[Rfam]
RNA sequence: AAAGAAAAGACAGAAAUACCCAAUAUCUUGCUCUAGCAAGAUAUUGGGUAUUUCUGUC
Number, nucleotide and partner (000 for none) at each position: 001a000002a000003a000004g000005a000006a000007a000008a000009g057010a000011c000012a055013g054014a053015a052016a051017u050018a049019c000020c000021c000022a045023a044024u000025a042026u041027c040028u039029u038030g037031c000032u000033c000034u000035a000036g000037c030038a029039a028040g027041a026042u025043a000044u023045u022046g000047g000048g000049u018050a017051u016052u015053u014054c013055u012056g000057u009058c000